[Rfam]
Description
Shown here is a 115-nucleotide sequence from Megalops atlanticus, a member of the family "U5 spliceosomal RNA". Rfam links the family to the GO terms spliceosomal tri-snRNP complex assembly and U5 snRNP. The source organism's lineage runs through Eukaryota, Opisthokonta, Deuterostomia, Teleostomi and Megalops. The family's consensus secondary structure is taken from published work. A search with the family's covariance model found it, with a score of 69 bits. By type it is a spliceosomal small nuclear RNA.
RNA sequence: CCGCUCUGGUUUCUCUUCAUCACGACAAAUCUUUCGCCUUUUACUAAAGAUUUCCAGGAGGAGAGGAACACAGGUGAGCCUAAAGUAUUUUGGAGUCCUGCCUUUAAGGCAGGGC
Number, nucleotide and partner (000 for none) at each position: 001c000002c000003g079004c078005u077006c076007u000008g000009g069010u068011u067012u066013c065014u064015c063016u062017u061018c060019a000020u000021c000022a000023c000024g000025a000026c000027a053028a052029a051030u050031c049032u048033u047034u046035c000036g000037c000038c000039u000040u000041u000042u000043a000044c000045u000046a034047a033048a032049g031050a030051u029052u028053u027054c000055c000056a000057g000058g000059a000060g018061g017062a016063g015064a014065g013066g012067a011068a010069c009070a000071c000072a000073g000074g000075u000076g006077a005078g004079c003080c000081u000082a000083a000084a000085g000086u000087a000088u000089u000090u000091u000092g000093g000094a000095g000096u114097c113098c112099u111100g110101c109102c000103u000104u000105u000106a000107a000108g000109g101110c100111a099112g098113g097114g096115c000